RNA sequence: UGAGGUAGAGGCGCAAAUAUUAUAAGUAAUCCACCGGAGAAUGACAACAGUGAUGGUUGGUGAAAGGGGUAUUUGCCGAAGCGUAAUAAGAGUCAAACUUAUUAUUUGCUGGUACAUCUUUGAACAAGAGAUGUACUGUCAUGCUUAAAGUGAGAGUUCAAAAAAGA
Numbered sequence: 001u002g003a004g005g006u007a008g009a010g011g012c013g014c015a016a017a018u019a020u021u022a023u024a025a026g027u028a029a030u031c032c033a034c035c036g037g038a039g040a041a042u043g044a045c046a047a048c049a050g051u052g053a054u055g056g057u058u059g060g061u062g063a064a065a066g067g068g069g070u071a072u073u074u075g076c077c078g079a080a081g082c083g084u085a086a087u088a089a090g091a092g093u094c095a096a097a098c099u100u101a102u103u104a105u106u107u108g109c110u111g112g113u114a115c116a117u118c119u120u121u122g123a124a125c126a127a128g129a130g131a132u133g134u135a136c137u138g139u140c141a142u143g144c145u146u147a148a149a150g151u152g153a154g155a156g157u158u159c160a161a162a163a164a165a166g167a
Base pairs, nucleotide, nucleotide: 013076014075015074016073017072018071019070020069021068029061030060031059033057034056035055036054080110081109082108083107084104085103086102087101088100089099090098111137112136113135114134115133116132117131118130119129120128121127145167
This 167-nucleotide RNA sequence from Oceanobacillus profundus belongs to the Rfam family "Lysine riboswitch aptamer".
It scores 83 bits against the family's covariance model.
Rfam describes the family as follows. Riboswitches are metabolite binding domains within certain messenger RNAs that serve as precision sensors for their corresponding targets. Allosteric rearrangement of mRNA structure is mediated by ligand binding, and this results in modulation of gene expression. This family includes riboswitches that sense lysine in a number of genes involved in lysine metabolism, including lysC.